SAM riboswitch aptamer (S box leader): a 106-nucleotide RNA sequence from Priestia koreensis. Lineage of the source: Bacteria > Bacillati > Bacillota > Caryophanales > Priestia. It scores 88 bits against the family's covariance model. From the family's description: The SAM riboswitch is found upstream of a number of genes which code for proteins involved in methionine or cysteine biosynthesis in Gram-positive bacteria.
RNA sequence: AACUUAUCCAGAGUGGGGGAGGGAACUGGCCCAAAGAACCCCGGCAACCUGCAUAGAAGCAAGGUGCCAAAUCCAGCAAAAUGCAAGACAUUUUGAAAGAUAAGGU
Numbered sequence: 001a002a003c004u005u006a007u008c009c010a011g012a013g014u015g016g017g018g019g020a021g022g023g024a025a026c027u028g029g030c031c032c033a034a035a036g037a038a039c040c041c042c043g044g045c046a047a048c049c050u051g052c053a054u055a056g057a058a059g060c061a062a063g064g065u066g067c068c069a070a071a072u073c074c075a076g077c078a079a080a081a082u083g084c085a086a087g088a089c090a091u092u093u094u095g096a097a098a099g100a101u102a103a104g105g106u
Base pairs, nucleotide, nucleotide: 001106003104004103005102006101007100008099013042015041016040017039021032022031023030026076027075028074029073043068044067045066046065048064049063050061051060052059072098077095078094079093080092081091082090